Shown here is a 69-nucleotide RNA sequence from Paramuricea clavata, a member of the family "mir-10 microRNA precursor family". The source organism's lineage runs through Eukaryota, Cnidaria, Anthozoa, Octocorallia and Paramuricea. On this family, see Lee and Ambros, Science 2001: "An extensive class of small RNAs in Caenorhabditis elegans".

RNA sequence: AUCUGGCAACCCGUAGAUCCGAACUUGUGGAGUUUAUCUCACAGGUUCGCCUCUACGGCUCUCUAGCAU
Numbered sequence: 001a002u003c004u005g006g007c008a009a010c011c012c013g014u015a016g017a018u019c020c021g022a023a024c025u026u027g028u029g030g031a032g033u034u035u036a037u038c039u040c041a042c043a044g045g046u047u048c049g050c051c052u053c054u055a056c057g058g059c060u061c062u063c064u065a066g067c068a069u
Base pairs, nucleotide, nucleotide: 003066004065005064006063011058012057015054016053017052020049021048022047023046024045025044026043027042028041029040